[Rfam]
RNA sequence: CGAAUCGUUGCGGGAGAGUUCUGGUUUCCAGACCAUCACCCAUGGAUCGCGACCAGGCGCCGAAGGAGCAAACCCUCCCCGGGAAUCUCUCAGGCACCCAGUACCGCCACGACGAG
Numbered sequence: 001c002g003a004a005u006c007g008u009u010g011c012g013g014g015a016g017a018g019u020u021c022u023g024g025u026u027u028c029c030a031g032a033c034c035a036u037c038a039c040c041c042a043u044g045g046a047u048c049g050c051g052a053c054c055a056g057g058c059g060c061c062g063a064a065g066g067a068g069c070a071a072a073c074c075c076u077c078c079c080c081g082g083g084a085a086u087c088u089c090u091c092a093g094g095c096a097c098c099c100a101g102u103a104c105c106g107c108c109a110c111g112a113c114g115a116g
Stems, first nucleotide, its partner, number of pairs: 006111003010107004020057007059095003062091002066089003073081001
RNA: Glycine riboswitch aptamer